[Rfam]
RNA sequence: CGUUUGGUAGUUAACAUCGACAUGUCGUUGGUGACUACCGAGUUGUACUUCAUUAACGUAGCGUUUCGCCGUGCCCACACCGAAAUACUACGUUUUUUU
Numbered sequence: 001c002g003u004u005u006g007g008u009a010g011u012u013a014a015c016a017u018c019g020a021c022a023u024g025u026c027g028u029u030g031g032u033g034a035c036u037a038c039c040g041a042g043u044u045g046u047a048c049u050u051c052a053u054u055a056a057c058g059u060a061g062c063g064u065u066u067c068g069c070c071g072u073g074c075c076c077a078c079a080c081c082g083a084a085a086u087a088c089u090a091c092g093u094u095u096u097u098u099u
Stems, first nucleotide, its partner, number of pairs: 002043012015030002018027002055094007063086006071080003
Rfam assigns this 99-nucleotide sequence from Lactiplantibacillus plantarum to the family "23S methyl RNA motif".
On this family, see Weinberg et al., Nucleic Acids Res 2007: "Identification of 22 candidate structured RNAs in bacteria using the CMfinder comparative genomics pipeline".
Rfam classes the family as a cis-regulatory element.
Rfam's curators put it in the seed alignment.